[Rfam]
RNA sequence: GCCACGGGAGUCCAGCGCGCUGGGCUGAGAGGAGGGGCGAGCCCCUCGACCGUACGAACCUGAACCGGAUCAUGCCGGCGCAGGGAGGC
Numbered sequence: 001g002c003c004a005c006g007g008g009a010g011u012c013c014a015g016c017g018c019g020c021u022g023g024g025c026u027g028a029g030a031g032g033a034g035g036g037g038c039g040a041g042c043c044c045c046u047c048g049a050c051c052g053u054a055c056g057a058a059c060c061u062g063a064a065c066c067g068g069a070u071c072a073u074g075c076c077g078g079c080g081c082a083g084g085g086a087g088g089c
Stems, first nucleotide, its partner, number of pairs: 001089003004053004010025005032047005059084004065078004
Dot-bracket structure: (((((((..(((((......)))))......(((((......)))))..)))).....((((..((((......))))..))))..)))

Rfam assigns this 89-nucleotide RNA sequence from Saccharopolyspora erythraea to the family "TPP riboswitch aptamer (THI element)". NCBI's taxonomy places the organism under Bacteria, Actinomycetes, Pseudonocardiales, Pseudonocardiaceae, Saccharopolyspora erythraea.